[Rfam]
RNA sequence: GCACCAAGCCUCUCUUGCCCGUUCCUCGCCGUGCAGUGCGGGUCAGGGGGGAAUUGGGUGCUACAGCACAGCAGUGGAAAUCCAGAUGGGUUCUUCUGCACUGGGAGACUCAUCUCUACACCUCUGCAACACCA
Numbered sequence: 001g002c003a004c005c006a007a008g009c010c011u012c013u014c015u016u017g018c019c020c021g022u023u024c025c026u027c028g029c030c031g032u033g034c035a036g037u038g039c040g041g042g043u044c045a046g047g048g049g050g051g052a053a054u055u056g057g058g059u060g061c062u063a064c065a066g067c068a069c070a071g072c073a074g075u076g077g078a079a080a081u082c083c084a085g086a087u088g089g090g091u092u093c094u095u096c097u098g099c100a101c102u103g104g105g106a107g108a109c110u111c112a113u114c115u116c117u118a119c120a121c122c123u124c125u126g127c128a129a130c131a132c133c134a
Base pairs, nucleotide, nucleotide: 001061002060003059004058005057014050015049018048019047020046024042025041071127072126073125074124076122084115085114086113087112088111089110090109091108